[Rfam]
RNA sequence: GCUGUGCAUGAUGACAGCUGGCUCCCUCUACUGACUUGCUCUGAGGAGACUGCCAUGUCACCCUGUCUGACUACAGC
Numbered sequence: 001g002c003u004g005u006g007c008a009u010g011a012u013g014a015c016a017g018c019u020g021g022c023u024c025c026c027u028c029u030a031c032u033g034a035c036u037u038g039c040u041c042u043g044a045g046g047a048g049a050c051u052g053c054c055a056u057g058u059c060a061c062c063c064u065g066u067c068u069g070a071c072u073a074c075a076g077c
Base pairs, nucleotide, nucleotide: 001077002076003075004074005073006072
This 77-nucleotide RNA from Diceros bicornis belongs to the Rfam family "Small nucleolar RNA SNORD100".
Its Rfam clan is "SNORD100 clan".
NCBI's taxonomy places the organism under Eukaryota, Teleostomi, Tetrapoda, Laurasiatheria, Diceros bicornis.
Rfam classes the family as a C/D-box small nucleolar RNA.